Shown here is a 68-nucleotide RNA from Nannospalax galili, a member of the family "Small nucleolar RNA SNORD77". Rfam describes the family as follows. U77 belongs to the C/D family of snoRNAs. It is predicted to guide 2'O-ribose methylation of large 28S rRNA subunit at position A1521. The C/D snoRNAs U44, U47, U74, U75, U76, U78, U79, U80 and U81 share the same host gene as U77 (non-coding). It is annotated as a C/D-box small nucleolar RNA. A reference for the family is Tycowski et al. (2004), "Guide RNAs with 5' caps and novel box C/D snoRNA-like domains for modification of snRNAs in metazoa", Curr Biol. Taxonomically the source falls in Nannospalax (Eukaryota, Eumetazoa, Spalacidae, Spalacinae).
RNA sequence: AUACAAUGAUGGUUGCAUAGUUCAGCAGACUAAAUCAUGGAGAGAAUUACCAUUUGUCUGAUGUAUCU
Numbered sequence: 001a002u003a004c005a006a007u008g009a010u011g012g013u014u015g016c017a018u019a020g021u022u023c024a025g026c027a028g029a030c031u032a033a034a035u036c037a038u039g040g041a042g043a044g045a046a047u048u049a050c051c052a053u054u055u056g057u058c059u060g061a062u063g064u065a066u067c068u
Stems, first nucleotide, its partner, number of pairs: 001066004006038005013028004043055003